[Rfam]
Annotation:
The record is a 94-nucleotide RNA from Microcaecilia unicolor, which matches "mir-589 microRNA precursor family" in Rfam. The base pairs follow the family's consensus structure, which was predicted with RNAalifold. A search with the family's covariance model found it, with a score of 55 bits.
RNA sequence: CCGCGCGCCUGUCGGCUCCGCUGGCUCCCUCUGCCCCGGAACAGGUUACUUCCUGUUCCGGGGCAGAGUGAGCCAGCGGUGCCGACAGCCGCGC
Numbered sequence: 001c002c003g004c005g006c007g008c009c010u011g012u013c014g015g016c017u018c019c020g021c022u023g024g025c026u027c028c029c030u031c032u033g034c035c036c037c038g039g040a041a042c043a044g045g046u047u048a049c050u051u052c053c054u055g056u057u058c059c060g061g062g063g064c065a066g067a068g069u070g071a072g073c074c075a076g077c078g079g080u081g082c083c084g085a086c087a088g089c090c091g092c093g094c
Stems, first nucleotide, its partner, number of pairs: 002093003005089002012085005019078003023074005029068003033064002036061007044053002